[Rfam]
RNA sequence: CCCCUUGCAAGCCGCGGCACAGCCCCUUAUCUUGGGGGUGUUCUUCGGAACUAUGGUGAUAAACGCGCUCGUAAUAAGCGGACUGGACCCGGGGGCGGUACCCGGCGGCUCCACCAAUACCCUUGCAGCAGGGAUCAUGGGGCCGAAACAGGAUCGACAGACGUCUAAAGGGGUUAUGCUUUCACCCGGUGAGAUACCACCGUUAUCGGUUCAAAACUUACAGUAGCCAAUACCAACGCUGCUCCCCGUGCUCUCGCCGCGUAAGCGGUAGCGAGACGGGAAACCUAAAGCCCCUGUGUGUAGCAACGCAGGGCGGGGCUCGGAGGCGCCUGGCAACAGAAGCCUCCACC
Number, nucleotide and partner (000 for none) at each position: 001c000002c000003c000004c000005u000006u000007g000008c000009a000010a000011g000012c000013c000014g000015c000016g000017g000018c000019a000020c000021a000022g000023c000024c000025c000026c000027u000028u000029a000030u000031c000032u000033u000034g000035g000036g000037g000038g000039u000040g051041u050042u049043c048044u000045u000046c000047g000048g043049a042050a041051c040052u000053a000054u000055g186056g185057u184058g183059a182060u000061a000062a000063a000064c000065g179066c178067g174068c173069u172070c171071g000072u000073a000074a000075u000076a000077a000078g000079c163080g162081g000082a000083c160084u159085g158086g000087a000088c000089c105090c104091g103092g102093g101094g000095g000096c000097g000098g000099u000100a000101c093102c092103c091104g090105g089106c145107g144108g143109c142110u141111c140112c139113a000114c000115c000116a000117a000118u000119a000120c000121c000122c000123u000124u000125g000126c000127a000128g000129c000130a000131g000132g000133g000134a000135u000136c000137a000138u000139g112140g111141g110142g109143c108144c107145g106146a000147a000148a000149c000150a000151g000152g000153a000154u000155c000156g000157a000158c085159a084160g083161a000162c080163g079164u000165c000166u000167a000168a000169a000170g000171g070172g069173g068174u067175u000176a000177u000178g066179c065180u000181u000182u059183c058184a057185c056186c055187c202188g201189g200190u199191g000192a000193g212194a211195u000196a210197c209198c208199a190200c189201c188202g187203u000204u000205a000206u000207c000208g198209g197210u196211u194212c193213a000214a000215a000216a000217c000218u000219u000220a000221c000222a000223g000224u000225a000226g000227c000228c000229a000230a000231u000232a000233c000234c000235a000236a000237c000238g000239c000240u000241g000242c000243u000244c000245c000246c000247c000248g000249u000250g000251c000252u000253c000254u000255c000256g000257c000258c000259g000260c000261g000262u000263a000264a000265g000266c000267g000268g000269u000270a000271g000272c000273g000274a000275g000276a000277c000278g000279g000280g000281a000282a000283a000284c000285c000286u000287a000288a000289a000290g000291c000292c000293c000294c000295u000296g000297u000298g000299u000300g000301u000302a000303g000304c000305a000306a000307c000308g000309c000310a000311g000312g000313g000314c000315g000316g331317g330318g329319c328320u000321c000322g347323g346324a345325g344326g343327c342328g319329c318330c317331u316332g000333g000334c000335a000336a000337c000338a000339g000340a000341a000342g327343c326344c325345u324346c323347c322348a000349c000350c000

Source information: A member of the RNA family "Alphaproteobacteria transfer-messenger RNA" from Phaeovulum vinaykumarii, 350 nucleotides long. Lineage of the source: Bacteria > Pseudomonadati > Pseudomonadota > Alphaproteobacteria > Phaeovulum. Pairs were carried over by alignment from the consensus structure, which is taken from published work.